[Rfam]
RNA sequence: UGGGCGGUAUCUACUUGAACUGCACCAACAUUAGAAAAAACACAUAAAAAUGGAUUCUGCCUAGAUCCGAUGUAUCGGACCGGGACAGAGGG
Numbered sequence: 001u002g003g004g005c006g007g008u009a010u011c012u013a014c015u016u017g018a019a020c021u022g023c024a025c026c027a028a029c030a031u032u033a034g035a036a037a038a039a040a041c042a043c044a045u046a047a048a049a050a051u052g053g054a055u056u057c058u059g060c061c062u063a064g065a066u067c068c069g070a071u072g073u074a075u076c077g078g079a080c081c082g083g084g085a086c087a088g089a090g091g092g
Base pairs, nucleotide, nucleotide: 001027002026003025004023005022006021007020008019010018011017057088058087059086060084061083062082064080066079067078068077069076070075
RNA: pan motif